[Rfam]
RNA sequence: GUGUUUUUCAUAGUAUUAGAUUUAAGGUUAACAAAGGUUAGGGGUUCAGCGGAGCCCCAUUUUUUUAUG
Numbered sequence: 001g002u003g004u005u006u007u008u009c010a011u012a013g014u015a016u017u018a019g020a021u022u023u024a025a026g027g028u029u030a031a032c033a034a035a036g037g038u039u040a041g042g043g044g045u046u047c048a049g050c051g052g053a054g055c056c057c058c059a060u061u062u063u064u065u066u067a068u069g
Stems, first nucleotide, its partner, number of pairs: 041058007
Notes:
A member of the RNA family "Bacteroidetes FopS (family of paralogous sRNAs)" from Prevotella sp. tc2-28, 69 nucleotides long. Pairs were carried over by alignment from the consensus structure, which is taken from published work. Its family is annotated with sRNA-mediated gene silencing in the Gene Ontology. Lineage of the source: Bacteria > Pseudomonadati > Bacteroidota > Bacteroidales > Prevotella. On this family, see Ruttiger et al., Nat Commun 2025: "The global RNA-binding protein RbpB is a regulator of polysaccharide utilization in Bacteroides thetaiotaomicron". Rfam describes the family as follows. The RNA-binding protein RbpB and BTncRNA_FopS sRNA are involved in the post-transcription regulation of polysaccharide utilisation loci (PUL). FopS sRNAs function as post-transcriptional repressors by binding to the vicinity of the start codon of the first mRNA of target PUL polycistrons, typically corresponding to the cognate SusC homolog, impeding translation of the respective glycan transporter.